[Rfam]
RNA sequence: GAAACAGCGUCGAAAGAGAAUAGUAAUAAAUGCAGGAUGUCGUACAGAAAAUGGCGCUCACUGGCUGAGAGGCGCUGUAACAUCUCUUUUAUGAACCUGCUCUGGAGCUGUCAGGUAUAAAUACCUGAUCGUUAACUGCGUUAAAGUUCCAAGUGGAAAAAUGAUUCUUAUCAUUUUUCAACGAAGGUGGCACCGCGGAUUAUACGUCUCCGUCCUUUAU
Numbered sequence: 001g002a003a004a005c006a007g008c009g010u011c012g013a014a015a016g017a018g019a020a021u022a023g024u025a026a027u028a029a030a031u032g033c034a035g036g037a038u039g040u041c042g043u044a045c046a047g048a049a050a051a052u053g054g055c056g057c058u059c060a061c062u063g064g065c066u067g068a069g070a071g072g073c074g075c076u077g078u079a080a081c082a083u084c085u086c087u088u089u090u091a092u093g094a095a096c097c098u099g100c101u102c103u104g105g106a107g108c109u110g111u112c113a114g115g116u117a118u119a120a121a122u123a124c125c126u127g128a129u130c131g132u133u134a135a136c137u138g139c140g141u142u143a144a145a146g147u148u149c150c151a152a153g154u155g156g157a158a159a160a161a162u163g164a165u166u167c168u169u170a171u172c173a174u175u176u177u178u179c180a181a182c183g184a185a186g187g188u189g190g191c192a193c194c195g196c197g198g199a200u201u202a203u204a205c206g207u208c209u210c211c212g213u214c215c216u217u218u219a220u
Base pairs, nucleotide, nucleotide: 007108008107015103016102017101018100026092027091028090029089030088040079042078053076054075055074056073057072058071111128112127113126114125115124116123117122130140131139132138156179157178158177159176160175161174162173163172164171184217185216186215187214195213196212197211198210199209
The family of this 220-nucleotide sequence from Sinobaca qinghaiensis is "T-box leader".
The family has 48 seed sequences and 19,395 matches in Rfam 15.1.
Lineage of the source: Bacteria > Bacillati > Bacilli > Sporolactobacillaceae > Sinobaca.
Gene Ontology term of the family: tRNA binding.
The family's RNA type in Rfam is cis-regulatory leader.